[Rfam]
A member of the RNA family "tRNA" from Temnothorax longispinosus, 74 nucleotides long. The base pairs follow the family's consensus structure, which is taken from published work.

RNA sequence: GCCUCGGUAGUCGAAUUGGUACGACGCCUUUCACGGAAUGAAGGAGGUUUCAGGUUCGAAUCCUGGCUGAGGUA
Numbered sequence: 001g002c003c004u005c006g007g008u009a010g011u012c013g014a015a016u017u018g019g020u021a022c023g024a025c026g027c028c029u030u031u032c033a034c035g036g037a038a039u040g041a042a043g044g045a046g047g048u049u050u051c052a053g054g055u056u057c058g059a060a061u062c063c064u065g066g067c068u069g070a071g072g073u074a
Stems, first nucleotide, its partner, number of pairs: 001073007010025004027044005050066005